[Rfam]
RNA sequence: GACUGUAAUGGUCCAACGGUGAAGGCGCUCAAACCCGCUCAACCGCCCAUCCCAAUUCUGAAUGCUUCGGCACUCAGCCCUCCGCCGCGCCCCGCCCGAACGCUGCGGUGGCCGCCCACUCGUGCAGGAAACUCACGAUGCUGGAACUUGCUGCGGCCCUAAGCACUGGAGAUGACCCUUGAGGGAGGUCUCACUCUGCAGAGAUCUCUCCCCCGUCGCGUGGCGGGUGGGAACACGUUGGUGCGGGGGGAUUUGGGUUGGUAAGUGGAUGAGAUGGAGCAGCCGACUUUUCUUUU
Number, nucleotide and partner (000 for none) at each position: 001g013002a012003c011004u000005g000006u000007a000008a000009u000010g000011g003012u002013c001014c000015a000016a000017c000018g293019g292020u000021g290022a289023a288024g287025g000026c000027g280028c279029u278030c277031a000032a275033a000034c000035c000036c271037g270038c000039u268040c267041a266042a000043c000044c000045g000046c000047c261048c260049a259050u000051c257052c256053c255054a254055a253056u000057u000058c000059u076060g075061a074062a000063u072064g071065c070066u000067u000068c000069g000070g065071c064072a063073c000074u061075c060076a059077g000078c000079c247080c246081u000082c000083c243084g242085c241086c240087g238088c237089g236090c000091c231092c230093c229094g228095c227096c226097c225098g224099a000100a221101c220102g219103c218104u000105g216106c215107g214108g213109u000110g000111g000112c000113c000114g000115c144116c143117c140118a139119c000120u138121c137122g136123u135124g134125c000126a133127g132128g000129a000130a000131a000132c127133u126134c124135a123136c122137g121138a120139u118140g117141c000142u000143g116144g115145a000146a000147c000148u000149u000150g000151c000152u000153g000154c000155g000156g000157c000158c000159c163160u000161a000162a000163g159164c000165a000166c000167u000168g211169g210170a209171g208172a207173u000174g000175a000176c000177c000178c203179u202180u201181g000182a000183g000184g000185g196186a195187g194188g000189u000190c000191u000192c000193a000194c187195u186196c185197u000198g000199c000200a000201g180202a179203g178204a000205u000206c000207u172208c171209u170210c169211c168212c000213c108214c107215g106216u105217c000218g103219c102220g101221u100222g000223g000224c098225g097226g096227g095228u094229g093230g092231g091232a000233a000234c000235a000236c089237g088238u087239u000240g086241g085242u084243g083244c000245g000246g080247g079248g000249g000250g000251a000252u000253u055254u054255g053256g052257g051258u000259u049260g048261g047262u000263a000264a000265g000266u041267g040268g039269a000270u037271g036272a000273g000274a000275u032276g000277g030278a029279g028280c027281a000282g000283c000284c000285g000286a000287c024288u023289u022290u021291u000292c019293u018294u000295u000296u000